[Rfam]
RNA sequence: GGAUGUGAGGGCGAUCUGGCUGCGACAUCUGUCACCCCAUUGAUCGCCAGGGUUGAUUCGGCUGAUCUGGCUGGCUAGGCGGGUGUCCCCUUCCUCCCUCACCGCUCCAUGUGCGUCCCUCCCGAAGCUGCGCGCUCGGUGGAAGAGGACGACGUCCCAGGUAUAGAAGGAGUGUACCGAGGUCUCCAGUCUUCGGUCCCGGGUAUACGAUAGCUGCGCUCCCCUGCUAGAACCUCCAAACAAGCUCAAGGUUGUCCAUCAUGUACAGUUUAUUAUUACUAUUAUUAUUAUUAAUAAUAAUAAUAGUAAU
Numbered sequence: 001g002g003a004u005g006u007g008a009g010g011g012c013g014a015u016c017u018g019g020c021u022g023c024g025a026c027a028u029c030u031g032u033c034a035c036c037c038c039a040u041u042g043a044u045c046g047c048c049a050g051g052g053u054u055g056a057u058u059c060g061g062c063u064g065a066u067c068u069g070g071c072u073g074g075c076u077a078g079g080c081g082g083g084u085g086u087c088c089c090c091u092u093c094c095u096c097c098c099u100c101a102c103c104g105c106u107c108c109a110u111g112u113g114c115g116u117c118c119c120u121c122c123c124g125a126a127g128c129u130g131c132g133c134g135c136u137c138g139g140u141g142g143a144a145g146a147g148g149a150c151g152a153c154g155u156c157c158c159a160g161g162u163a164u165a166g167a168a169g170g171a172g173u174g175u176a177c178c179g180a181g182g183u184c185u186c187c188a189g190u191c192u193u194c195g196g197u198c199c200c201g202g203g204u205a206u207a208c209g210a211u212a213g214c215u216g217c218g219c220u221c222c223c224c225u226g227c228u229a230g231a232a233c234c235u236c237c238a239a240a241c242a243a244g245c246u247c248a249a250g251g252u253u254g255u256c257c258a259u260c261a262u263g264u265a266c267a268g269u270u271u272a273u274u275a276u277u278a279c280u281a282u283u284a285u286u287a288u289u290a291u292u293a294a295u296a297a298u299a300a301u302a303a304u305a306g307u308a309a310u
Base pairs, nucleotide, nucleotide: 001108002107003106005102006101007100008099009098010097011096013093014092018090019089024087025086026085027084028083029082030081031080032079033078035074036073037070038069039068042067043066044065045064046062047061048060116170117169119166120165122139123138124137125136127135128134140161147157148156149155213274215272219268220267225265226264227263235258280309282306283305284304285303286302287301288300289299290298291297